This 109-nucleotide RNA sequence from Sorghum bicolor belongs to the Rfam family "MIR5565 microRNA precursor family". The family's consensus secondary structure was predicted with RNAalifold. Rfam 15.1 lists 3,346 matches to the family in 5 species.

RNA sequence: UUAGUCGGAUUCACAUCAAUCCACAUGUAUUGAGGUGGAUUGGAUUGAAAUUUGAACUAAAUUCCACUUCAAUCCACACCACAACACAUACAUUGAAGUGAAUCCGACA
Numbered sequence: 001u002u003a004g005u006c007g008g009a010u011u012c013a014c015a016u017c018a019a020u021c022c023a024c025a026u027g028u029a030u031u032g033a034g035g036u037g038g039a040u041u042g043g044a045u046u047g048a049a050a051u052u053u054g055a056a057c058u059a060a061a062u063u064c065c066a067c068u069u070c071a072a073u074c075c076a077c078a079c080c081a082c083a084a085c086a087c088a089u090a091c092a093u094u095g096a097a098g099u100g101a102a103u104c105c106g107a108c109a
Stems, first nucleotide, its partner, number of pairs: 004108011016096005023089001026086003031081002035077009046066002